[Rfam]
RNA: mir-8799 microRNA precursor family
RNA sequence: GUGGGGAGGCCGGAUCCUGGGCUGUGUCCCGGCGCCCUGUGCUCCCGCUCUGUGCUGUUGGAUUCGUGCUCCCGCCCCGCAGCCCCCU
Numbered sequence: 001g002u003g004g005g006g007a008g009g010c011c012g013g014a015u016c017c018u019g020g021g022c023u024g025u026g027u028c029c030c031g032g033c034g035c036c037c038u039g040u041g042c043u044c045c046c047g048c049u050c051u052g053u054g055c056u057g058u059u060g061g062a063u064u065c066g067u068g069c070u071c072c073c074g075c076c077c078c079g080c081a082g083c084c085c086c087c088u
Base pairs, nucleotide, nucleotide: 001088003086004085005084006083009080010079012076013075017074019072020071021070023068024067025066026065027062028061029060030057031056032055033054034053035052039050041049043047